Record summary: Rfam assigns this 161-nucleotide RNA from Astyanax mexicanus to the family "Small nucleolar RNA U109". It scores 54 bits against the family's covariance model. Lineage of the source: Eukaryota > Eumetazoa > Vertebrata > Actinopterygii > Astyanax.

[Rfam]
RNA sequence: AUGCAUGCUGUGGCUUCCCAGCCACAAGAACAUCCACCUCUUCCUACUGAUGAGGUUGUGGAUAUUUUAGAAGUAGCAUGCUAGAGAAAAUGUAUUGGAGUUAACAGGGCCACCAGUCUAUCAAGAACAGACUGUGUUGGUAGUAUAAUACUCCAACAAAU
Numbered sequence: 001a002u003g004c005a006u007g008c009u010g011u012g013g014c015u016u017c018c019c020a021g022c023c024a025c026a027a028g029a030a031c032a033u034c035c036a037c038c039u040c041u042u043c044c045u046a047c048u049g050a051u052g053a054g055g056u057u058g059u060g061g062a063u064a065u066u067u068u069a070g071a072a073g074u075a076g077c078a079u080g081c082u083a084g085a086g087a088a089a090a091u092g093u094a095u096u097g098g099a100g101u102u103a104a105c106a107g108g109g110c111c112a113c114c115a116g117u118c119u120a121u122c123a124a125g126a127a128c129a130g131a132c133u134g135u136g137u138u139g140g141u142a143g144u145a146u147a148a149u150a151c152u153c154c155a156a157c158a159a160a161u
Stems, first nucleotide, its partner, number of pairs: 003081006020066001097154004109141002113136001114134006